[Rfam]
RNA sequence: AUACAUCUAGAUCCAUACCCCUAAACUCCCUAGAUGUUUUGGACGGCAAACAAUUGUGCUGUCCUUUUUUU
Numbered sequence: 001a002u003a004c005a006u007c008u009a010g011a012u013c014c015a016u017a018c019c020c021c022u023a024a025a026c027u028c029c030c031u032a033g034a035u036g037u038u039u040u041g042g043a044c045g046g047c048a049a050a051c052a053a054u055u056g057u058g059c060u061g062u063c064c065u066u067u068u069u070u071u
Base pairs, nucleotide, nucleotide: 004036005035006034007033008032009031041064042063043062044061045060046059047058048057050055

Overview
Shown here is a 71-nucleotide sequence from Bacillus sp. FJAT-50079, a member of the family "Listeria sRNA sbrA". For this family Rfam cites "The Listeria transcriptional landscape from saprophytism to virulence" (Toledo-Arana et al., Nature, 2009). Taxonomically the source falls in Bacillus (Bacteria, Bacillati, Bacilli, Caryophanales).